Notes
A member of the RNA family "mir-2319 microRNA precursor family" from Bos taurus, 71 nucleotides long. The family's consensus secondary structure was predicted with RNAalifold. Its family is annotated with miRNA-mediated post-transcriptional gene silencing and RISC complex in the Gene Ontology. The organism belongs to Bos, within Eukaryota.
RNA sequence: UGUAGCUAAGUGCCUAAUACAGAGUAACAUCUUAUGAUCUCAUGCUACUCUGUAUUAGGCACUUAGCUACA
Numbered sequence: 001u002g003u004a005g006c007u008a009a010g011u012g013c014c015u016a017a018u019a020c021a022g023a024g025u026a027a028c029a030u031c032u033u034a035u036g037a038u039c040u041c042a043u044g045c046u047a048c049u050c051u052g053u054a055u056u057a058g059g060c061a062c063u064u065a066g067c068u069a070c071a
Stems, first nucleotide, its partner, number of pairs: 001071026028044003